[Rfam]
RNA: Nitrogen stress-induced RNA 1
Organism: Nodosilinea sp. LEGE 07088
RNA sequence: CGGUAGAUGCACCCUGAUUCGACCCCUGAGGAUAGCUAACUCGGGGGUCUUUUCU
Numbered sequence: 001c002g003g004u005a006g007a008u009g010c011a012c013c014c015u016g017a018u019u020c021g022a023c024c025c026c027u028g029a030g031g032a033u034a035g036c037u038a039a040c041u042c043g044g045g046g047g048u049c050u051u052u053u054c055u
Stems, first nucleotide, its partner, number of pairs: 002013003023047008